A member of the RNA family "Small nucleolar RNA SNORA68" from Scophthalmus maximus, 132 nucleotides long. On this family, see Ganot et al., Genes Dev 1997: "The family of box ACA small nucleolar RNAs is defined by an evolutionarily conserved secondary structure and ubiquitous sequence elements essential for RNA accumulation". It is annotated as an H/ACA-box small nucleolar RNA. Rfam's curators write: U68 is a member of the H/ACA class of small nucleolar RNAs (snoRNAs) which act as guides in the the modification of uridines to pseudouridines. Rfam links the family to the GO terms RNA processing and nucleolus. The family's consensus secondary structure was predicted with PFOLD. It scores 60 bits against the family's covariance model.
RNA sequence: GUUGCACCCAAACCCUGAGGUCCGGUCGUGUCCGUGUCGUGACCUCGUCUGGUUGUGCAGACACCAACUGAACCUUGUCGCCUUUCUCUGCUGCUGCUGUGCCUCUGAAAGUGAAUCCAAGGUUCUACAGGU
Numbered sequence: 001g002u003u004g005c006a007c008c009c010a011a012a013c014c015c016u017g018a019g020g021u022c023c024g025g026u027c028g029u030g031u032c033c034g035u036g037u038c039g040u041g042a043c044c045u046c047g048u049c050u051g052g053u054u055g056u057g058c059a060g061a062c063a064c065c066a067a068c069u070g071a072a073c074c075u076u077g078u079c080g081c082c083u084u085u086c087u088c089u090g091c092u093g094c095u096g097c098u099g100u101g102c103c104u105c106u107g108a109a110a111g112u113g114a115a116u117c118c119a120a121g122g123u124u125c126u127a128c129a130g131g132u
Stems, first nucleotide, its partner, number of pairs: 002060006009052001019044004025038001027036002070125007082111005090102002
Dot-bracket structure: .((((((.(.........((((..(.((......)).)..)))).......)..)))))).........(((((((.....(((((...((.........))....))))).......))))))).......